Rfam assigns this 124-nucleotide RNA from Phenylobacterium kunshanense to the family "Caulobacter sRNA CrfA".
Rfam classes the family as a small RNA.
Pairs were carried over by alignment from the consensus structure.
RNA sequence: GAGAGACAUGAAGGCGCUAGUCCUGAAGUCUCCGGCGUUUCGGGGAGGAAACGCCCGCUCAAUCAGAGCGACUGCUCAAGACGGCCCGCAGCGAAUAUCCCCCGCUGCGGGCCGAAUCUUUUUC
Numbered sequence: 001g002a003g004a005g006a007c008a009u010g011a012a013g014g015c016g017c018u019a020g021u022c023c024u025g026a027a028g029u030c031u032c033c034g035g036c037g038u039u040u041c042g043g044g045g046a047g048g049a050a051a052c053g054c055c056c057g058c059u060c061a062a063u064c065a066g067a068g069c070g071a072c073u074g075c076u077c078a079a080g081a082c083g084g085c086c087c088g089c090a091g092c093g094a095a096u097a098u099c100c101c102c103c104g105c106u107g108c109g110g111g112c113c114g115a116a117u118c119u120u121u122u123u124c
Stems, first nucleotide, its partner, number of pairs: 001033001003032005009026001034055008061123002064074003081117001082114012

For this family Rfam cites "Small non-coding RNAs in Caulobacter crescentus" (Landt et al., Mol Microbiol, 2008).